A member of the RNA family "Small nucleolar RNA SNORA22", 133 nucleotides long. About the family: ACA22 is a member of the H/ACA class of snoRNA that guide the sites of modification of uridines to pseudouridines.
RNA sequence: UUCCACAGUGAAUACCAAGUUUGCUUUAUAGUUCCCAUGGCUUUGACUGUAUGCUAGAGCAAUGUCUGUGGUUUCCCUCUGCAUUGAAAGGAGCAUUUAUCCUUUUAAAUGUAUUCAGAAAGCCAGCACAUUU
Numbered sequence: 001u002u003c004c005a006c007a008g009u010g011a012a013u014a015c016c017a018a019g020u021u022u023g024c025u026u027u028a029u030a031g032u033u034c035c036c037a038u039g040g041c042u043u044u045g046a047c048u049g050u051a052u053g054c055u056a057g058a059g060c061a062a063u064g065u066c067u068g069u070g071g072u073u074u075c076c077c078u079c080u081g082c083a084u085u086g087a088a089a090g091g092a093g094c095a096u097u098u099a100u101c102c103u104u105u106u107a108a109a110u111g112u113a114u115u116c117a118g119a120a121a122g123c124c125a126g127c128a129c130a131u132u133u
Base pairs, nucleotide, nucleotide: 004053005052007050010048013045014044015040016039017038019036023032024031025030056072059069060068061067078119079118080117081116082111083110084109085108086106087105088104089103090102091101092100

Background: Rfam's curators put it in the seed alignment. The family's RNA type in Rfam is H/ACA-box small nucleolar RNA.